[Rfam]
Rfam assigns this 445-nucleotide part of an RNA from methanogenic archaeon ISO4-H5 to the family "Archaeal large subunit ribosomal RNA".
RNA sequence: CCCCGCGAAACAAGUCUCAGCUUGAGAUCGAUGGAGGCAGAAUGUGAGGUAGAGCACCGAUUGGAUGCUUAGGGAGGGAAACCUCUCGGUGUCUUGUCAAACUCCGAACUUGCGUUCACCGUAGAAGUCGGAUCUAAGGCUACCCGGGGUAAGCUUGGUAGCCGUAAGGGAAACAACCCAGACCGAAGUUAAGGUCCCUAAAUUCCAGUUAAGUGUAAUAUGAAAUGGCGUCAGUAGUCUAAGACAACCGGGAGGUGAGCUCAGAAGCAGCCACCCUUCAAAGAAAGCGUAACAGCUCACCGGUCGAGAUUAUGGGCCCAGAAAAUGGACGGGGCUAAGCUGGAUACCGAUACUUCGGAAUACAGUAAUGUAAUUUUGUAGCGGGGCGUGGUGCUUGGGCAGAAGCAGGGCCGUGAGGUCCUGUGGACCGGGUACCAACGAGGAU
Numbered sequence: 001c002c003c004c005g006c007g008a009a010a011c012a013a014g015u016c017u018c019a020g021c022u023u024g025a026g027a028u029c030g031a032u033g034g035a036g037g038c039a040g041a042a043u044g045u046g047a048g049g050u051a052g053a054g055c056a057c058c059g060a061u062u063g064g065a066u067g068c069u070u071a072g073g074g075a076g077g078g079a080a081a082c083c084u085c086u087c088g089g090u091g092u093c094u095u096g097u098c099a100a101a102c103u104c105c106g107a108a109c110u111u112g113c114g115u116u117c118a119c120c121g122u123a124g125a126a127g128u129c130g131g132a133u134c135u136a137a138g139g140c141u142a143c144c145c146g147g148g149g150u151a152a153g154c155u156u157g158g159u160a161g162c163c164g165u166a167a168g169g170g171a172a173a174c175a176a177c178c179c180a181g182a183c184c185g186a187a188g189u190u191a192a193g194g195u196c197c198c199u200a201a202a203u204u205c206c207a208g209u210u211a212a213g214u215g216u217a218a219u220a221u222g223a224a225a226u227g228g229c230g231u232c233a234g235u236a237g238u239c240u241a242a243g244a245c246a247a248c249c250g251g252g253a254g255g256u257g258a259g260c261u262c263a264g265a266a267g268c269a270g271c272c273a274c275c276c277u278u279c280a281a282a283g284a285a286a287g288c289g290u291a292a293c294a295g296c297u298c299a300c301c302g303g304u305c306g307a308g309a310u311u312a313u314g315g316g317c318c319c320a321g322a323a324a325a326u327g328g329a330c331g332g333g334g335c336u337a338a339g340c341u342g343g344a345u346a347c348c349g350a351u352a353c354u355u356c357g358g359a360a361u362a363c364a365g366u367a368a369u370g371u372a373a374u375u376u377u378g379u380a381g382c383g384g385g386g387c388g389u390g391g392u393g394c395u396u397g398g399g400c401a402g403a404a405g406c407a408g409g410g411c412c413g414u415g416a417g418g419u420c421c422u423g424u425g426g427a428c429c430g431g432g433u434a435c436c437a438a439c440g441a442g443g444a445u
Stems, first nucleotide, its partner, number of pairs: 001386006011024005026134001028131005036120002040117008052105001053103002059098003063094006072087006138163007146156002168179003183358007193348003202345001204344006226320003230317003234313006247304005253277003259271002278282001283298001287296002359376002361372004387440001389437010405424008
The organism belongs to Thermoplasmata, within Archaea. Rfam 15.1 lists 2,955 matches to the family in 1,139 species.